[Rfam]
RNA sequence: CAGCGGGUGAGAGUCCCGCAUGGGUAAAGGCAGGAAAGCCCGGUAGCAGACCCUGGUUCGUCGAGAGGCGGUGGGCUGAGCAAGGUGUAAAAAGCCUCUUUGGGAGGAGCAAGCGUGUGGGUCGUAGGUCCA
Dot-bracket structure: ....................((((..............)))).......(((.(((((((((....))...))))))....).)))........((((.....)))).((.............)).......
Numbered sequence: 001c002a003g004c005g006g007g008u009g010a011g012a013g014u015c016c017c018g019c020a021u022g023g024g025u026a027a028a029g030g031c032a033g034g035a036a037a038g039c040c041c042g043g044u045a046g047c048a049g050a051c052c053c054u055g056g057u058u059c060g061u062c063g064a065g066a067g068g069c070g071g072u073g074g075g076c077u078g079a080g081c082a083a084g085g086u087g088u089a090a091a092a093a094g095c096c097u098c099u100u101u102g103g104g105a106g107g108a109g110c111a112a113g114c115g116u117g118u119g120g121g122u123c124g125u126a127g128g129u130c131c132a
Stems, first nucleotide, its partner, number of pairs: 021042004050086003054082001055077006061068002095107004109125002
The family of this 132-nucleotide RNA from Ferrimicrobium acidiphilum is "Group II catalytic intron D1-D4-4". From the family's description: Group II introns are found in rRNA, tRNA and mRNA of organelles in fungi, plants and protists, and also in mRNA in bacteria. Rfam 15.1 lists 840 matches to the family in 506 species. The organism belongs to Ferrimicrobium acidiphilum, within Bacteria. It scores 63 bits against the family's covariance model.